The family of this 106-nucleotide sequence from Clostridium botulinum is "azaaromatic riboswitch aptamer (yjdF RNA)". Taxonomically the source falls in Clostridium botulinum C (Bacteria, Bacillati, Clostridia, Clostridium). It is one of the family's seed sequences.
RNA sequence: UUCUAUAGAGAUAAAAACACAGUUUCGGUUGGUAGUCCGAACCUAUCUAAUUUAACGUUAGCAGUAACCUGCCCUCCUGGGGUUGUCCCUUCUCUAUGUUUUAGAU
Numbered sequence: 001u002u003c004u005a006u007a008g009a010g011a012u013a014a015a016a017a018c019a020c021a022g023u024u025u026c027g028g029u030u031g032g033u034a035g036u037c038c039g040a041a042c043c044u045a046u047c048u049a050a051u052u053u054a055a056c057g058u059u060a061g062c063a064g065u066a067a068c069c070u071g072c073c074c075u076c077c078u079g080g081g082g083u084u085g086u087c088c089c090u091u092c093u094c095u096a097u098g099u100u101u102u103a104g105a106u
Base pairs, nucleotide, nucleotide: 004098005097006096007095008094009093010092011091022042023041025040026039027038028037043061044060045059047057071083073082074081075080